[Rfam]
RNA sequence: GGUCAUGAGUGACAGCGCCAAGCCCCAGCUUGCUGUCCGGCAACCCUCCGUCCGUGGCGGGGUGCCCUGGGUGAGGACCGGGUCCCGCGGCAAUCCGUCCGCGUGACAAGCGCGGACG
Numbered sequence: 001g002g003u004c005a006u007g008a009g010u011g012a013c014a015g016c017g018c019c020a021a022g023c024c025c026c027a028g029c030u031u032g033c034u035g036u037c038c039g040g041c042a043a044c045c046c047u048c049c050g051u052c053c054g055u056g057g058c059g060g061g062g063u064g065c066c067c068u069g070g071g072u073g074a075g076g077a078c079c080g081g082g083u084c085c086c087g088c089g090g091c092a093a094u095c096c097g098u099c100c101g102c103g104u105g106a107c108a109a110g111c112g113c114g115g116a117c118g
Base pairs, nucleotide, nucleotide: 001079002078003077004076009038011037012036013035014034015033016032021030022029039066040065041064044062045061046060048057049056082107083106084105086103087102088101089100090099
RNA: SAM (S-adenosyl methionine) riboswitch aptamer
Organism: Streptomyces sp. CB01881